[Rfam]
Archaeal large subunit ribosomal RNA: a 357-nucleotide part of an RNA from candidate division MSBL1 archaeon SCGC-AAA259A05. Clan: LSU clan. Taxonomically the source falls in candidate division MSBL1 (Archaea, Methanobacteriati, Methanobacteriota). It scores 2766 bits against the family's covariance model.
RNA sequence: CGGGGGAUCCCAGGCCAGGGAAAUCGGCAAAUUGGCCCCGUACCUUUGGUAGAAGGGGUGCCUGCCCUGCGAAAGGGCAGGUUGCAGUGACCAGGGGGGUCCGACUGUUUAAUAAAAACAUAGCCAACCGCGAGUCCGAAAGGAUGAGUACGGUUGGUGAAUCCUGCCCAGUAGCGGCUUGUCAAGCAGGGUUACAACCCUGUGAAGCGCCGCUAGACGGCGGGGGUAACUAUAACCCUCUUAAGGUAACGAAGUGCCUUGCCGCUGAAUUGGCGGCUUGCAUGAACGGAUCAACGAGACCCCCACUGUCCCGGCCCGGGUCCCGGUGAACCUACGGUCUGGCGCAGAGUCCAGAUA
Numbered sequence: 001c002g003g004g005g006g007a008u009c010c011c012a013g014g015c016c017a018g019g020g021a022a023a024u025c026g027g028c029a030a031a032u033u034g035g036c037c038c039c040g041u042a043c044c045u046u047u048g049g050u051a052g053a054a055g056g057g058g059u060g061c062c063u064g065c066c067c068u069g070c071g072a073a074a075g076g077g078c079a080g081g082u083u084g085c086a087g088u089g090a091c092c093a094g095g096g097g098g099g100u101c102c103g104a105c106u107g108u109u110u111a112a113u114a115a116a117a118a119c120a121u122a123g124c125c126a127a128c129c130g131c132g133a134g135u136c137c138g139a140a141a142g143g144a145u146g147a148g149u150a151c152g153g154u155u156g157g158u159g160a161a162u163c164c165u166g167c168c169c170a171g172u173a174g175c176g177g178c179u180u181g182u183c184a185a186g187c188a189g190g191g192u193u194a195c196a197a198c199c200c201u202g203u204g205a206a207g208c209g210c211c212g213c214u215a216g217a218c219g220g221c222g223g224g225g226g227u228a229a230c231u232a233u234a235a236c237c238c239u240c241u242u243a244a245g246g247u248a249a250c251g252a253a254g255u256g257c258c259u260u261g262c263c264g265c266u267g268a269a270u271u272g273g274c275g276g277c278u279u280g281c282a283u284g285a286a287c288g289g290a291u292c293a294a295c296g297a298g299a300c301c302c303c304c305a306c307u308g309u310c311c312c313g314g315c316c317c318g319g320g321u322c323c324c325g326g327u328g329a330a331c332c333u334a335c336g337g338u339c340u341g342g343c344g345c346a347g348a349g350u351c352c353a354g355a356u357a
Stems, first nucleotide, its partner, number of pairs: 001325004009320003013316004018311003035059005044049001060082009083087001095304007102296002106120003123158008131148001134145004161291004166221003171218002173214005180209003187202005222240006241245001261277006338355005